The family of this 172-nucleotide sequence from Triticum aestivum is "MIR2118 microRNA precursor family". Gene Ontology terms of the family: RISC complex and miRNA-mediated post-transcriptional gene silencing. The base pairs follow the family's consensus structure, which was predicted with RNAalifold. Lineage of the source: Eukaryota > Viridiplantae > Triticodae > Triticinae > Triticum. A search with the family's covariance model found it, with a score of 123 bits. For this family Rfam cites "Characterization and expression profiles of miRNAs in rice seeds" (Xue et al., Nucleic Acids Res, 2009).

[Rfam]
RNA sequence: GCCGUGAAGAGGAAGAAAGAGAGACCUUAAGAGCGCUAGGAAUGGGAACAUGGAAAAAAAACCAAACUUAUUUGCUUUCACCCAUGCCAGAGGUGAAAAUAUUAUGUUUGGUAUUUUUCUGAUGCCUCCCAUUCCUAUGGUUCUUAAGCACUCCUUCCUCUUCAUUUUGGAA
Dot-bracket structure: ........(((((.(((...(((..(((((((((..(((((((((((.(((.(..(((((.....................................................))))).).)))..)))))))))))..)))))))))..))).))).))))).........
Numbered sequence: 001g002c003c004g005u006g007a008a009g010a011g012g013a014a015g016a017a018a019g020a021g022a023g024a025c026c027u028u029a030a031g032a033g034c035g036c037u038a039g040g041a042a043u044g045g046g047a048a049c050a051u052g053g054a055a056a057a058a059a060a061a062c063c064a065a066a067c068u069u070a071u072u073u074g075c076u077u078u079c080a081c082c083c084a085u086g087c088c089a090g091a092g093g094u095g096a097a098a099a100u101a102u103u104a105u106g107u108u109u110g111g112u113a114u115u116u117u118u119c120u121g122a123u124g125c126c127u128c129c130c131a132u133u134c135c136u137a138u139g140g141u142u143c144u145u146a147a148g149c150a151c152u153c154c155u156u157c158c159u160c161u162u163c164a165u166u167u168u169g170g171a172a
Stems, first nucleotide, its partner, number of pairs: 009163005015157003021153003026148009037137011049124003053120001056118005